This 184-nucleotide RNA sequence from Paenibacillus larvae belongs to the Rfam family "FMN riboswitch aptamer (RFN element)". Taxonomically the source falls in Paenibacillus larvae subsp. larvae (Bacteria, Bacillati, Caryophanales, Paenibacillus larvae). It scores 90 bits against the family's covariance model.
[Rfam]
RNA sequence: GCAAUCCUUCGGGGCAGGGUGCAAUUCCCGACCGACGGUGAUACGAAGAUGGCGAUAUUCUGCUGCUUCGUUCAGUCCGUGACCCGGGCCAAUCCGACUUGUAAAUAGUCAAGUUAAGAAUGGAACGGUGGAGCCGGUGCAAAUCCGGGACCGACAGUAAAAGUCUGGAUGGGAGAAGGAAACG
Dot-bracket structure: ....((((((......(((.......))).[[((((((....................................[[))))...((.........................................)).....((((.......)))).]])).(((.....]]))).......))))))....